[Rfam]
RNA sequence: GGGGACCUUCGGGGCCCUAUACGAACAGCCGGGCGGUCCACCGCCCGCAAAGCAACGGAAGACAGAGA
Number, nucleotide and partner (000 for none) at each position: 001g018002g017003g016004g015005a000006c014007c013008u012009u000010c000011g000012g008013g007014g006015c004016c003017c002018u001019a000020u000021a000022c000023g000024a000025a000026c000027a000028g000029c000030c047031g046032g045033g044034c043035g042036g041037u000038c000039c000040a000041c036042c035043g034044c033045c032046c031047g030048c000049a000050a000051a000052g000053c000054a000055a000056c000057g000058g000059a000060a000061g000062a000063c000064a000065g000066a000067g000068a000

This 68-nucleotide RNA from Wenxinia saemankumensis belongs to the Rfam family "L2-Alphaproteobacteria ribosomal protein leader". On this family, see Eckert and Weinberg, BMC Microbiol 2020: "Discovery of 20 novel ribosomal leader candidates in bacteria and archaea". By type it is a cis-regulatory leader.